This 96-nucleotide RNA from Stenomitos frigidus belongs to the Rfam family "Group II catalytic intron D1-D4-1". It scores 64 bits against the family's covariance model. From the family's description: Group II introns are found in rRNA, tRNA and mRNA of organelles in fungi, plants and protists, and also in mRNA in bacteria.

RNA sequence: CGCGCUUGGUGGUAACACCAAGGGUGAUUGGGCAGAAGUCAGCCGAAGCCAUAGUAGCCAAACGCUGAUCGUAAUGGGUGAGACAGGGUGAAGGGC
Numbered sequence: 001c002g003c004g005c006u007u008g009g010u011g012g013u014a015a016c017a018c019c020a021a022g023g024g025u026g027a028u029u030g031g032g033c034a035g036a037a038g039u040c041a042g043c044c045g046a047a048g049c050c051a052u053a054g055u056a057g058c059c060a061a062a063c064g065c066u067g068a069u070c071g072u073a074a075u076g077g078g079u080g081a082g083a084c085a086g087g088g089u090g091a092a093g094g095g096c
Base pairs, nucleotide, nucleotide: 001026002025005022006021007020008019009018010017011016039046040045048096049095050094057089058088059087066085067084